[Rfam]
RNA sequence: UGUAUUCCUUAUCUGUUAUCUAUUUCUAAUGAUUGUUGGAGCCUAUCUUCUGGUCAUACCCUUUGACUAAACUGCCUGUUAUGACCGGAAGAUAGGCCCUGCUAUAUGUUGCCGCUAAAACUCUUGGA
Numbered sequence: 001u002g003u004a005u006u007c008c009u010u011a012u013c014u015g016u017u018a019u020c021u022a023u024u025u026c027u028a029a030u031g032a033u034u035g036u037u038g039g040a041g042c043c044u045a046u047c048u049u050c051u052g053g054u055c056a057u058a059c060c061c062u063u064u065g066a067c068u069a070a071a072c073u074g075c076c077u078g079u080u081a082u083g084a085c086c087g088g089a090a091g092a093u094a095g096g097c098c099c100u101g102c103u104a105u106a107u108g109u110u111g112c113c114g115c116u117a118a119a120a121c122u123c124u125u126g127g128a
Base pairs, nucleotide, nucleotide: 002112003111004110023104026101038100039099041097042096043095044094045093046092047091050088051087052086053085054084056082057081058080060078

Description
The record is a 128-nucleotide RNA sequence from Xenorhabdus japonica, which matches "tp2" in Rfam. A search with the family's covariance model found it, with a score of 72 bits. Rfam classes the family as a small RNA. The organism belongs to Xenorhabdus, within Bacteria.